[Rfam]
RNA: NiCo (Nickel/Cobalt) riboswitch aptamer
RNA sequence: ACAGUACAAACUGAGCAGGCGAUGAACUUAUUUAUAAGUUCGUGGGGCCGGGCCUUAAUUGGCAGCAGGAUGAUUAUACACCUGUGGGACAGUG
Numbered sequence: 001a002c003a004g005u006a007c008a009a010a011c012u013g014a015g016c017a018g019g020c021g022a023u024g025a026a027c028u029u030a031u032u033u034a035u036a037a038g039u040u041c042g043u044g045g046g047g048c049c050g051g052g053c054c055u056u057a058a059u060u061g062g063c064a065g066c067a068g069g070a071u072g073a074u075u076a077u078a079c080a081c082c083u084g085u086g087g088g089a090c091a092g093u094g
Base pairs, nucleotide, nucleotide: 010093011092012091013090016088018049019048020047022043023042024041025040026039027038052063053062054061065085066084067083068082069081